[Rfam]
RNA sequence: UAAGUUGUUGCAGUUAAAAAGCUCGUAGUUGGAUUUUGGUUAAGAGGGCGCGGUCGGCCGUUUGGUCUGUACUGCGUUGUCUUGACUUCCUGAUGAGGACAUGCUCUUGGUUAACGCUGAGACAUGGAGUCAUCGUGGUUACUUUGAAAAAAUUAGAGUGUUCAAAGCGGGCUUACGCUUGAAUAUAUUAGCAUGGAAUAACACUAUAGGACUCCUGUCCUAUCUCGUUGGUCUCGGGAUGGGAGUAAUGAUUAAGAGGAACAGUUGGGGGCAUUCGUAUUUCAUUGUCAGAGGUGAAAUUCUUGGAUUUAUGAAAGACGAACUUCUGCGAAAGCAUUUGCCAAGGAUGUUUUCAUUAAUCAAGAACGAAAGUUGGGGGCUCGAAGAUGAUUAGAUACCAUCCUAGUCUCAACCAUAAACGAUGCCGACUAGGGAUUGGUGGAUGUUAAUUGAUGACUUCACCAGCACCUUAUGAGAAAUCAAAGUUUUUGGGUUCCGGGGGGAGUAUGGUCGCAAGGCUGAAACUUAAAGGAAU
Numbered sequence: 001u002a003a004g005u006u007g008u009u010g011c012a013g014u015u016a017a018a019a020a021g022c023u024c025g026u027a028g029u030u031g032g033a034u035u036u037u038g039g040u041u042a043a044g045a046g047g048g049c050g051c052g053g054u055c056g057g058c059c060g061u062u063u064g065g066u067c068u069g070u071a072c073u074g075c076g077u078u079g080u081c082u083u084g085a086c087u088u089c090c091u092g093a094u095g096a097g098g099a100c101a102u103g104c105u106c107u108u109g110g111u112u113a114a115c116g117c118u119g120a121g122a123c124a125u126g127g128a129g130u131c132a133u134c135g136u137g138g139u140u141a142c143u144u145u146g147a148a149a150a151a152a153u154u155a156g157a158g159u160g161u162u163c164a165a166a167g168c169g170g171g172c173u174u175a176c177g178c179u180u181g182a183a184u185a186u187a188u189u190a191g192c193a194u195g196g197a198a199u200a201a202c203a204c205u206a207u208a209g210g211a212c213u214c215c216u217g218u219c220c221u222a223u224c225u226c227g228u229u230g231g232u233c234u235c236g237g238g239a240u241g242g243g244a245g246u247a248a249u250g251a252u253u254a255a256g257a258g259g260a261a262c263a264g265u266u267g268g269g270g271g272c273a274u275u276c277g278u279a280u281u282u283c284a285u286u287g288u289c290a291g292a293g294g295u296g297a298a299a300u301u302c303u304u305g306g307a308u309u310u311a312u313g314a315a316a317g318a319c320g321a322a323c324u325u326c327u328g329c330g331a332a333a334g335c336a337u338u339u340g341c342c343a344a345g346g347a348u349g350u351u352u353u354c355a356u357u358a359a360u361c362a363a364g365a366a367c368g369a370a371a372g373u374u375g376g377g378g379g380c381u382c383g384a385a386g387a388u389g390a391u392u393a394g395a396u397a398c399c400a401u402c403c404u405a406g407u408c409u410c411a412a413c414c415a416u417a418a419a420c421g422a423u424g425c426c427g428a429c430u431a432g433g434g435a436u437u438g439g440u441g442g443a444u445g446u447u448a449a450u451u452g453a454u455g456a457c458u459u460c461a462c463c464a465g466c467a468c469c470u471u472a473u474g475a476g477a478a479a480u481c482a483a484a485g486u487u488u489u490u491g492g493g494u495u496c497c498g499g500g501g502g503g504a505g506u507a508u509g510g511u512c513g514c515a516a517g518g519c520u521g522a523a524a525c526u527u528a529a530a531g532g533a534a535u
Base pairs, nucleotide, nucleotide: 011498013496019495021367023365024364028360029359030358258354259353260352261351262349263348265346266345270342271341272340273339276320277319280316281315282314283313284312285311287309291302292301293300325336328335329334372413373412374411375410376409377408382406386402387401388400389399424494425493426492427487428486429485431470432469433468436465437464438463439462440461441460442459443458445457446456447455474481475480500527501526502525509520510519511518512517

The family of this 535-nucleotide part of an RNA from Bathycoccus prasinos is "Eukaryotic small subunit ribosomal RNA". Pairs were carried over by alignment from the consensus structure, which is taken from published work. Its Rfam clan is "SSU clan".